[Rfam]
RNA sequence: CAAGCUUAGAGUUUGAUCCUGGCUCAGGAUGAACGCUGGCGGUGUGCCUUAGGCAUGCAAGUCGAACGAUAAGCUUCCUUCGGGAAGUGGACAGUGGCAGACGGGUGAGUAACACGUAGGUAUCUACCGAAGAGUGGGGAAUAGCCAGCCGAAAGGUUGGGUAAUACCGCAUAAUCCCUCCGGGGCAAAGUAUUUAUACGCUUUUCGAGGAGCCUGCGGGCUAUCAGUUAGUUGGUGGGGUAAUGGCCUACCAAGACUACGACGGCUAGCCGAUGUGAGAGCAUGAUCGGCCACAAGGUUACUGAGACACGGAACCUACACCUACGGGUGGCAGCAACCGGGAAUAUUGCGCAAUGGACGAAAGUCUGACGCAGCGACACCGCGUGCAGGAAGACGCUUUUAGGAGUGUAAACUGCUGUGGCGAGGGAGAAAUUUUGAUAGUACCUCGCUAGAAAGCACCAGCUAACCACGUGCCAGAAGCUUCGGUAAUACGUGGGGUGCAAGCGUUAUCCGGAUUUAUUG
Numbered sequence: 001c002a003a004g005c006u007u008a009g010a011g012u013u014u015g016a017u018c019c020u021g022g023c024u025c026a027g028g029a030u031g032a033a034c035g036c037u038g039g040c041g042g043u044g045u046g047c048c049u050u051a052g053g054c055a056u057g058c059a060a061g062u063c064g065a066a067c068g069a070u071a072a073g074c075u076u077c078c079u080u081c082g083g084g085a086a087g088u089g090g091a092c093a094g095u096g097g098c099a100g101a102c103g104g105g106u107g108a109g110u111a112a113c114a115c116g117u118a119g120g121u122a123u124c125u126a127c128c129g130a131a132g133a134g135u136g137g138g139g140a141a142u143a144g145c146c147a148g149c150c151g152a153a154a155g156g157u158u159g160g161g162u163a164a165u166a167c168c169g170c171a172u173a174a175u176c177c178c179u180c181c182g183g184g185g186c187a188a189a190g191u192a193u194u195u196a197u198a199c200g201c202u203u204u205u206c207g208a209g210g211a212g213c214c215u216g217c218g219g220g221c222u223a224u225c226a227g228u229u230a231g232u233u234g235g236u237g238g239g240g241u242a243a244u245g246g247c248c249u250a251c252c253a254a255g256a257c258u259a260c261g262a263c264g265g266c267u268a269g270c271c272g273a274u275g276u277g278a279g280a281g282c283a284u285g286a287u288c289g290g291c292c293a294c295a296a297g298g299u300u301a302c303u304g305a306g307a308c309a310c311g312g313a314a315c316c317u318a319c320a321c322c323u324a325c326g327g328g329u330g331g332c333a334g335c336a337a338c339c340g341g342g343a344a345u346a347u348u349g350c351g352c353a354a355u356g357g358a359c360g361a362a363a364g365u366c367u368g369a370c371g372c373a374g375c376g377a378c379a380c381c382g383c384g385u386g387c388a389g390g391a392a393g394a395c396g397c398u399u400u401u402a403g404g405a406g407u408g409u410a411a412a413c414u415g416c417u418g419u420g421g422c423g424a425g426g427g428a429g430a431a432a433u434u435u436u437g438a439u440a441g442u443a444c445c446u447c448g449c450u451a452g453a454a455a456g457c458a459c460c461a462g463c464u465a466a467c468c469a470c471g472u473g474c475c476a477g478a479a480g481c482u483u484c485g486g487u488a489a490u491a492c493g494u495g496g497g498g499u500g501c502a503a504g505c506g507u508u509a510u511c512c513g514g515a516u517u518u519a520u521u522g
Stems, first nucleotide, its partner, number of pairs: 009025005027512004032508006039383006045376002047341001052339002056336003061098003066095002070090001073088006105294003115218007123211002128207007136170001138168002145160006176185003190199003220266003227257003232254008269291004273284004296317005319330004347373001349372003355368005386416004396407004421449006430439001456501005467496005477484002
Bacterial small subunit ribosomal RNA: a 522-nucleotide part of an RNA from an uncultured bacterium. The family is grouped with related families in Rfam's "SSU clan". The sequence is in the family's curated seed alignment. For this family Rfam cites "Crystal structure of the ribosome at 5.5 A resolution" (Yusupov et al., Science, 2001).